[Rfam]
RNA sequence: UCCGAAAAGCGCGGGAGCUCGGGCGAGACCGGGCUGAGAGGGCGGAUUCUCCGACGAGACGUGCCGCCGACCGCAUGAACCUGUCCGGAUAAUGCCGGCGUAGGGAGCGUGUGAUGACAUCGG
Numbered sequence: 001u002c003c004g005a006a007a008a009g010c011g012c013g014g015g016a017g018c019u020c021g022g023g024c025g026a027g028a029c030c031g032g033g034c035u036g037a038g039a040g041g042g043c044g045g046a047u048u049c050u051c052c053g054a055c056g057a058g059a060c061g062u063g064c065c066g067c068c069g070a071c072c073g074c075a076u077g078a079a080c081c082u083g084u085c086c087g088g089a090u091a092a093u094g095c096c097g098g099c100g101u102a103g104g105g106a107g108c109g110u111g112u113g114a115u116g117a118c119a120u121c122g123g
Base pairs, nucleotide, nucleotide: 007110009108010107011074012073013072014071017034018033019032020031021030041068042067043066044065045064080104081103082102083101085098086097087096088095
Rfam assigns this 123-nucleotide RNA from Microbispora sp. ATCC PTA-5024 to the family "TPP riboswitch aptamer (THI element)". The family's consensus secondary structure is taken from published work. Gene Ontology term of the family: thiamine pyrophosphate binding. Taxonomically the source falls in Microbispora (Bacteria, Bacillati, Actinomycetota, Actinomycetes). A search with the family's covariance model found it, with a score of 62 bits.